[Rfam]
RNA sequence: AUACAGCUAGAUCCAUACCCCUAAACUCCCUAAUUUAUUGGAUAGCACUAUGUGCUAUCCCCUUUUU
Numbered sequence: 001a002u003a004c005a006g007c008u009a010g011a012u013c014c015a016u017a018c019c020c021c022u023a024a025a026c027u028c029c030c031u032a033a034u035u036u037a038u039u040g041g042a043u044a045g046c047a048c049u050a051u052g053u054g055c056u057a058u059c060c061c062c063u064u065u066u067u
Stems, first nucleotide, its partner, number of pairs: 005035002008032002040060009
A member of the RNA family "Listeria sRNA sbrA" from Bacillus sp. FJAT-18017, 67 nucleotides long. A search with the family's covariance model found it, with a score of 60 bits. On this family, see Toledo-Arana et al., Nature 2009: "The Listeria transcriptional landscape from saprophytism to virulence". Lineage of the source: Bacteria > Bacillati > Bacilli > Caryophanales > Bacillus. Pairs were carried over by alignment from the consensus structure, which was predicted with WAR.